[Rfam]
Nucleotides: 143
Base pairs, nucleotide, nucleotide: 005063006062007061008060009059010058011057023051024050025049027047029045030044031043032042076136077135078134079133081131103127104126105125106124
Number, partner (000 for none) and nucleotide at each position: 001000u002000a003000u004000u005063g006062u007061g008060g009059u010058g011057g012000u013000u014000u015000c016000u017000g018000u019000a020000u021000u022000u023051g024050g025049c026000g027047g028000a029045u030044c031043u032042g033000u034000a035000a036000c037000u038000g039000u040000a041000u042032c043031a044030g045029a046000g047027c048000g049025g050024c051023c052000u053000g054000a055000a056000g057011c058010u059009a060008c061007c062006a063005c064000a065000g066000a067000g068000a069000u070000c071000a072000g073000a074000a075000a076136g077135g078134a079133g080000a081131u082000g083000g084000c085000u086000a087000c088000g089000c090000u091000g092000a093000g094000a095000g096000c097000u098000u099000u100000u101000u102000c103127c104126g105125a106124g107000c108000u109000u110000u111000u112000a113000g114000u115000u116000u117000u118000c119000a120000g121000c122000u123000u124106u125105u126104u127103g128000u129000u130000c131081g132000g133079c134078u135077c136076c137000u138000a139000c140000a141000g142000a143000a
Background: The record is a 143-nucleotide RNA sequence from Lophotis ruficrista, which matches "Small nucleolar RNA SNORA12" in Rfam. U108 belongs to the H/ACA family of snoRNAs. The sequence is predicted to guide the pseudouridylation of the U372 residue in the 28S rRNA subunit. However it has not been reported as a pseudouridylation site. Gene Ontology terms of the family: RNA processing and nucleolus. The base pairs follow the family's consensus structure, which was predicted with RNAalifold. On this family, see Gu et al., Nucleic Acids Res 2005: "A novel experimental approach for systematic identification of box H/ACA snoRNAs from eukaryotes".